[Rfam]
RNA sequence: ACGACCUUACUUGAACAGGAUCUGUUCUAUAGGCUCGUACCGUUGCAUCCUUGACUAAUAAGGAGGCAAGCACUCAAGCUUGGUUGAUGACGCAUGACCUGUGGGCCAGAGCGUGAUUGACGGCCCGGAUCAUUUCCGUGUGAAUUGAUCCCGCGGCUGUAGAGGAUCGUUCCUUGCCGGGCUUUCGCUUGGUCAGGGUUGGCCCAUAGGUUGUCUGACAGGCA
Numbered sequence: 001a002c003g004a005c006c007u008u009a010c011u012u013g014a015a016c017a018g019g020a021u022c023u024g025u026u027c028u029a030u031a032g033g034c035u036c037g038u039a040c041c042g043u044u045g046c047a048u049c050c051u052u053g054a055c056u057a058a059u060a061a062g063g064a065g066g067c068a069a070g071c072a073c074u075c076a077a078g079c080u081u082g083g084u085u086g087a088u089g090a091c092g093c094a095u096g097a098c099c100u101g102u103g104g105g106c107c108a109g110a111g112c113g114u115g116a117u118u119g120a121c122g123g124c125c126c127g128g129a130u131c132a133u134u135u136c137c138g139u140g141u142g143a144a145u146u147g148a149u150c151c152c153g154c155g156g157c158u159g160u161a162g163a164g165g166a167u168c169g170u171u172c173c174u175u176g177c178c179g180g181g182c183u184u185u186c187g188c189u190u191g192g193u194c195a196g197g198g199u200u201g202g203c204c205c206a207u208a209g210g211u212u213g214u215c216u217g218a219c220a221g222g223c224a
Stems, first nucleotide, its partner, number of pairs: 001038002003035001005033003013027006043069004048064006078223005097211012110171004120160006127151006134144003173196002176193007